[Rfam]
RNA sequence: ACGACCUUACUUGAACAGGAUCUGUUCUAUAGGCUCGUACCUCUGUAUCCUUGAUUUCUAAGGAGACAGGCCCUUAACCCUGGUUGAUGAACCAUGACCGUGCGGCUAGAGCGUGAUUAACGGCCAAGAUCAAUCCUUAGAUCGGUCCGGUGCUGUAGAGGAUCGUUACUCGGCUCGGUCUUAUCCUUGCCGGUGUGGUCGCACGGCGGUCUGACAGGCU
Numbered sequence: 001a002c003g004a005c006c007u008u009a010c011u012u013g014a015a016c017a018g019g020a021u022c023u024g025u026u027c028u029a030u031a032g033g034c035u036c037g038u039a040c041c042u043c044u045g046u047a048u049c050c051u052u053g054a055u056u057u058c059u060a061a062g063g064a065g066a067c068a069g070g071c072c073c074u075u076a077a078c079c080c081u082g083g084u085u086g087a088u089g090a091a092c093c094a095u096g097a098c099c100g101u102g103c104g105g106c107u108a109g110a111g112c113g114u115g116a117u118u119a120a121c122g123g124c125c126a127a128g129a130u131c132a133a134u135c136c137u138u139a140g141a142u143c144g145g146u147c148c149g150g151u152g153c154u155g156u157a158g159a160g161g162a163u164c165g166u167u168a169c170u171c172g173g174c175u176c177g178g179u180c181u182u183a184u185c186c187u188u189g190c191c192g193g194u195g196u197g198g199u200c201g202c203a204c205g206g207c208g209g210u211c212u213g214a215c216a217g218g219c220u
Stems, first nucleotide, its partner, number of pairs: 001038002003035001005033003013027006043069004048064006079218004098206011110167004120156005125150001128147004133142003170193005177186002